[Rfam]
RNA sequence: AACUGCAUUGCCGGGCAAAUCUCCUUUGGCAGUAGCCUCUUAAUUCUGUUUGCAAAUAUUGCUUACAGCAAUCUAGCUUCUGCCAGAAGAGUUAUUUGCCCAGUAAUGCAUAU
Numbered sequence: 001a002a003c004u005g006c007a008u009u010g011c012c013g014g015g016c017a018a019a020u021c022u023c024c025u026u027u028g029g030c031a032g033u034a035g036c037c038u039c040u041u042a043a044u045u046c047u048g049u050u051u052g053c054a055a056a057u058a059u060u061g062c063u064u065a066c067a068g069c070a071a072u073c074u075a076g077c078u079u080c081u082g083c084c085a086g087a088a089g090a091g092u093u094a095u096u097u098g099c100c101c102a103g104u105a106a107u108g109c110a111u112a113u
Stems, first nucleotide, its partner, number of pairs: 005109005011103001013101007021091003027085006034078002
mir-399 microRNA precursor family: a 113-nucleotide RNA from Handroanthus impetiginosus. The family's consensus secondary structure was predicted with PFOLD. The match comes from Rfam's covariance-model search (61 bits). Taxonomically the source falls in Handroanthus (Eukaryota, Embryophyta, Tracheophyta, Lamiales). A reference for the family is Jones-Rhoades and Bartel (2004), "Computational Identification of Plant MicroRNAs and Their Targets, Including a Stress-Induced miRNA", Mol Cell. Rfam links the family to the GO terms miRNA-mediated post-transcriptional gene silencing and RISC complex.